The record is a 65-nucleotide RNA sequence from Exaiptasia diaphana, which matches "Selenocysteine insertion sequence 1" in Rfam. It is annotated as a cis-regulatory element. NCBI's taxonomy places the organism under Eukaryota, Metazoa, Actiniaria, Aiptasiidae, Exaiptasia. A search with the family's covariance model found it, with a score of 36 bits.
[Rfam]
RNA sequence: UUUGUAUAUAUGACAACGUCGUCAUAAACUCAAUACGAGCCAACGGCGUUUGAUGCUUGUGCAAA
Numbered sequence: 001u002u003u004g005u006a007u008a009u010a011u012g013a014c015a016a017c018g019u020c021g022u023c024a025u026a027a028a029c030u031c032a033a034u035a036c037g038a039g040c041c042a043a044c045g046g047c048g049u050u051u052g053a054u055g056c057u058u059g060u061g062c063a064a065a
Stems, first nucleotide, its partner, number of pairs: 001065005015050008029039003